[Rfam]
The record is a 125-nucleotide RNA sequence from Caldimonas brevitalea, which matches "ZMP/ZTP riboswitch aptamer (pfl RNA motif)" in Rfam. NCBI's taxonomy places the organism under Bacteria, Pseudomonadota, Betaproteobacteria, Burkholderiales, Caldimonas. The family's consensus secondary structure is taken from published work. The match comes from Rfam's covariance-model search (51 bits).
RNA sequence: GCGGGGCUGCACAACUGGCGAUAGGGCCCCCGCUCGGGAGCGCCCAAGGUGGCGUACCACCGGGAAGUGCAGCCGGCGUGGUGUCGACUUGCUGCGCCGUUCAGCCGUUCGCCUGGGCAGCCUUC
Numbered sequence: 001g002c003g004g005g006g007c008u009g010c011a012c013a014a015c016u017g018g019c020g021a022u023a024g025g026g027c028c029c030c031c032g033c034u035c036g037g038g039a040g041c042g043c044c045c046a047a048g049g050u051g052g053c054g055u056a057c058c059a060c061c062g063g064g065a066a067g068u069g070c071a072g073c074c075g076g077c078g079u080g081g082u083g084u085c086g087a088c089u090u091g092c093u094g095c096g097c098c099g100u101u102c103a104g105c106c107g108u109u110c111g112c113c114u115g116g117g118c119a120g121c122c123u124u125c
Base pairs, nucleotide, nucleotide: 005074006073007072008071009070010069011068012067015064016063017113018112019111020110021109049060050059051058052057102120104118105117106116